[Rfam]
RNA: Small nucleolar RNA SNORD35
Organism: Neodrepanis coruscans
Nucleotides: 085
Stems, first nucleotide, its partner, number of pairs: 001080004
Number, partner (000 for none) and nucleotide at each position: 001080u002079g003078c004077a005000g006000a007000u008000g009000a010000u011000g012000c013000c014000a015000a016000u017000c018000u019000c020000a021000c022000g023000a024000u025000g026000g027000u028000c029000u030000g031000c032000u033000g034000a035000g036000c037000c038000c039000a040000g041000c042000a043000g044000g045000g046000g047000c048000c049000u050000g051000a052000c053000g054000a055000c056000g057000c058000u059000g060000c061000c062000a063000u064000g065000u066000g067000g068000c069000u070000u071000u072000a073000c074000u075000g076000a077004u078003g079002c080001a081000g082000g083000u084000g085000a